[Rfam]
Overview
This 173-nucleotide RNA from Clostridium kluyveri belongs to the Rfam family "Lysine riboswitch aptamer". Riboswitches are metabolite binding domains within certain messenger RNAs that serve as precision sensors for their corresponding targets. A search with the family's covariance model found it, with a score of 106 bits. The source organism's lineage runs through Bacteria, Bacillota, Eubacteriales, Clostridium and Clostridium kluyveri.
RNA sequence: GCCUAGGGUAGAGGUGCUGUAAUUAAUAGUAUUUAUUUUUAAUCGGCAGAUGUUUGAGGAAUAAAGAAAGGAAUUACAGCCGAAAAGUUAGUUUGGCGAACCUAACUUUGGCUUUGCAUAUAAUAUGUGUAAGGCUGUCACUGAGAUAUACUUGGUGGAGAGCUACAAGGUAC
Numbered sequence: 001g002c003c004u005a006g007g008g009u010a011g012a013g014g015u016g017c018u019g020u021a022a023u024u025a026a027u028a029g030u031a032u033u034u035a036u037u038u039u040u041a042a043u044c045g046g047c048a049g050a051u052g053u054u055u056g057a058g059g060a061a062u063a064a065a066g067a068a069a070g071g072a073a074u075u076a077c078a079g080c081c082g083a084a085a086a087g088u089u090a091g092u093u094u095g096g097c098g099a100a101c102c103u104a105a106c107u108u109u110g111g112c113u114u115u116g117c118a119u120a121u122a123a124u125a126u127g128u129g130u131a132a133g134g135c136u137g138u139c140a141c142u143g144a145g146a147u148a149u150a151c152u153u154g155g156u157g158g159a160g161a162g163c164u165a166c167a168a169g170g171u172a173c
Base pairs, nucleotide, nucleotide: 008166009165010164011163016080017079018078019077020076021075022074023073024072032065033064034063035062036061037060038059039058084109085108086107087106088105089104090103091102093100094099110136111135112134113133114132115131116130117129118128119127120126138158139157140156141155142154143153144152